RNA: U12 minor spliceosomal RNA
Organism: Ceratitis capitata
RNA sequence: GUGCCUAAAACUAACAGUAAGGAAAACCGUCCAACCUUGCUAACAGCUCGGUUGAUGUGCUUCUAGGCAGUGAAGUGGGUGGGCAUUGGUACUUGAUUGUGCCGUGUCUGCUCGCUUUACGAAGCGCCAAUUUUUGAAUGGGCACAGGUCGUCCCUUCGAACUCAUGCGCACGCUCACUACUUUCGAGUUGUGUCGUAGAGUUUGGGUGAAGCGAUCUGCCCG
Numbered sequence: 001g002u003g004c005c006u007a008a009a010a011c012u013a014a015c016a017g018u019a020a021g022g023a024a025a026a027c028c029g030u031c032c033a034a035c036c037u038u039g040c041u042a043a044c045a046g047c048u049c050g051g052u053u054g055a056u057g058u059g060c061u062u063c064u065a066g067g068c069a070g071u072g073a074a075g076u077g078g079g080u081g082g083g084c085a086u087u088g089g090u091a092c093u094u095g096a097u098u099g100u101g102c103c104g105u106g107u108c109u110g111c112u113c114g115c116u117u118u119a120c121g122a123a124g125c126g127c128c129a130a131u132u133u134u135u136g137a138a139u140g141g142g143c144a145c146a147g148g149u150c151g152u153c154c155c156u157u158c159g160a161a162c163u164c165a166u167g168c169g170c171a172c173g174c175u176c177a178c179u180a181c182u183u184u185c186g187a188g189u190u191g192u193g194u195c196g197u198a199g200a201g202u203u204u205g206g207g208u209g210a211a212g213c214g215a216u217c218u219g220c221c222c223g
Base pairs, nucleotide, nucleotide: 004022005021006020008018032054033053034052035051036050039047059125060124061123062122063121139223140222141221142220143219146218147217148216149215150214151213152212155207156206159204160203161202162201163200166198167197168196169195